[Rfam]
RNA: small nucleolar RNA snoR137
Organism: Capsicum baccatum
RNA sequence: GUUGCUUCUUACUUGUGAACACCUCUUAAUUUUUUGCGUGUGUUCCUGUUUCGGAAGCAUAGAUUAAUACUUAUGCCAGUUUUAAACAGCGUGGUGAAUGUAUCUCUUUGCACACUGCUACCUGUCUUCUGGUACAAGC
Numbered sequence: 001g002u003u004g005c006u007u008c009u010u011a012c013u014u015g016u017g018a019a020c021a022c023c024u025c026u027u028a029a030u031u032u033u034u035u036g037c038g039u040g041u042g043u044u045c046c047u048g049u050u051u052c053g054g055a056a057g058c059a060u061a062g063a064u065u066a067a068u069a070c071u072u073a074u075g076c077c078a079g080u081u082u083u084a085a086a087c088a089g090c091g092u093g094g095u096g097a098a099u100g101u102a103u104c105u106c107u108u109u110g111c112a113c114a115c116u117g118c119u120a121c122c123u124g125u126c127u128u129c130u131g132g133u134a135c136a137a138g139c
Base pairs, nucleotide, nucleotide: 003059004058005057006056007055008054017045018044019043020042023038025036075133076132077131078130079129088119089118090117094113095112096111